Brassica rapa small nucleolar RNA 775: a 113-nucleotide RNA from Brassica napus.
Rfam links the family to the GO terms RNA processing and nucleolus.
The family has 2 seed sequences and 25 matches in Rfam 15.1.
Rfam describes the family as follows. Name based on close proximity to miR775. Precursors of both are encoded by a single gene sno-miR775.
Rfam classes the family as an H/ACA-box small nucleolar RNA.
The literature on the family includes a 2015 paper in BMC Genomics by Qu et al., "Promoter-based identification of novel non-coding RNAs reveals the presence of dicistronic snoRNA-miRNA genes in Arabidopsis thaliana".

[Rfam]
RNA sequence: UCUUUGAAUUAUUAAUUAGGUAUAGUUUUUUUUUUUGGUUUGAUGGAAGGAAGAUUGCCUCUUCUUUCAGCAGCAAGUUCUGUUCUUGUUAGCUUUGUUCUGGAGGCAUAUAU
Numbered sequence: 001u002c003u004u005u006g007a008a009u010u011a012u013u014a015a016u017u018a019g020g021u022a023u024a025g026u027u028u029u030u031u032u033u034u035u036u037g038g039u040u041u042g043a044u045g046g047a048a049g050g051a052a053g054a055u056u057g058c059c060u061c062u063u064c065u066u067u068c069a070g071c072a073g074c075a076a077g078u079u080c081u082g083u084u085c086u087u088g089u090u091a092g093c094u095u096u097g098u099u100c101u102g103g104a105g106g107c108a109u110a111u112a113u
Base pairs, nucleotide, nucleotide: 001038002037006033007032008031011027056108057107058106059105060104061103062102069094070093071092072090073089074088075087076086077085